[Rfam]
RNA: speF leader
RNA sequence: CGCCGGCUUUCCACAGGCCGGCACCGAAGAGGCUUGUCCUUCAUUGCCGGGCGUGCGGGGUCUCCCCAAGCGACGGUUAUCAGAGUCCGAACGAAUCGUUCGGCGAGUCCUGGCGUCUCCAUCGCGCCUCGAAACGCCGACGGCUC
Numbered sequence: 001c002g003c004c005g006g007c008u009u010u011c012c013a014c015a016g017g018c019c020g021g022c023a024c025c026g027a028a029g030a031g032g033c034u035u036g037u038c039c040u041u042c043a044u045u046g047c048c049g050g051g052c053g054u055g056c057g058g059g060g061u062c063u064c065c066c067c068a069a070g071c072g073a074c075g076g077u078u079a080u081c082a083g084a085g086u087c088c089g090a091a092c093g094a095a096u097c098g099u100u101c102g103g104c105g106a107g108u109c110c111u112g113g114c115g116u117c118u119c120c121a122u123c124g125c126g127c128c129u130c131g132a133a134a135c136g137c138c139g140a141c142g143g144c145u146c
Stems, first nucleotide, its partner, number of pairs: 002022007031048003055127003075088002098108003